The family of this 122-nucleotide sequence from Azohydromonas caseinilytica is "Guanidine-I riboswitch aptamer".
Rfam links the family to the GO term regulation of gene expression.
[Rfam]
RNA sequence: UCAGAUGAUGGCUAGGGUUCCGGGGGUUCGCUGCGUGCGCACCCUGACUGGUCCGAGAGCCAUCGGCCUGUGGCGACCGUUCAUCGACGCAGGCUCCACGGCGGGACAAAAGCCCGGGAGGU
Number, nucleotide and partner (000 for none) at each position: 001u000002c000003a000004g000005a000006u000007g064008a063009u062010g061011g060012c059013u000014a000015g054016g053017g000018u000019u000020c051021c050022g048023g045024g044025g043026g042027u041028u000029c000030g000031c000032u000033g000034c000035g000036u000037g000038c000039g000040c000041a027042c026043c025044c024045u023046g000047a000048c022049u000050g021051g020052u000053c016054c015055g000056a000057g000058a000059g012060c011061c010062a009063u008064c007065g095066g094067c093068c092069u091070g090071u089072g088073g000074c000075g000076a000077c000078c000079g000080u000081u000082c000083a000084u000085c000086g000087a000088c072089g071090c070091a069092g068093g067094c066095u065096c000097c117098a000099c120100g000101g000102c000103g115104g114105g113106a000107c000108a000109a000110a000111a000112g000113c105114c104115c103116g000117g097118g000119a000120g099121g000122u000
On this family, see Barrick et al., Proc Natl Acad Sci U S A 2004: "New RNA motifs suggest an expanded scope for riboswitches in bacterial genetic control". A search with the family's covariance model found it, with a score of 86 bits. The organism belongs to Azohydromonas, within Bacteria.